This 36-nucleotide sequence from Spirosoma profusum belongs to the Rfam family "DUF805b RNA".
A search with the family's covariance model found it, with a score of 36 bits.
The organism belongs to Spirosoma, within Bacteria.
[Rfam]
RNA sequence: AAAGGGGGCGCCGAAAACCUUCACUCAGAGUAGGCA
Numbered sequence: 001a002a003a004g005g006g007g008g009c010g011c012c013g014a015a016a017a018c019c020u021u022c023a024c025u026c027a028g029a030g031u032a033g034g035c036a
Base pairs, nucleotide, nucleotide: 002021003020004019005018010035011034012033
Dot-bracket structure: .((((....[[[.....))))...........]]].